The family of this 46-nucleotide RNA from Schistosoma haematobium is "Histone 3' UTR stem-loop". NCBI's taxonomy places the organism under Eukaryota, Spiralia, Neodermata, Schistosomatidae, Schistosoma. The match comes from Rfam's covariance-model search (35 bits). From the family's description: The mRNAs of metazoan histone genes lack a poly-A tail. 3' end processing occurs at a site between a highly conserved stem-loop (modelled by this family) and a purine rich region around 20 nts downstream (the histone downstream element, or HDE). The literature on the family includes a 1995 paper in Nucleic Acids Res by Williams and Marzluff, "The sequence of the stem and flanking sequences at the 3' end of histone mRNA are critical determinants for the binding of the stem-loop binding protein". Gene Ontology term of the family: mRNA 3'-end processing by stem-loop binding and cleavage.
[Rfam]
RNA sequence: UUAAAGGCUCUUUUCAGGGCCACCCACAAUUUGAUUUAAAUUAAUU
Numbered sequence: 001u002u003a004a005a006g007g008c009u010c011u012u013u014u015c016a017g018g019g020c021c022a023c024c025c026a027c028a029a030u031u032u033g034a035u036u037u038a039a040a041u042u043a044a045u046u
Base pairs, nucleotide, nucleotide: 006021007020008019009018010017011016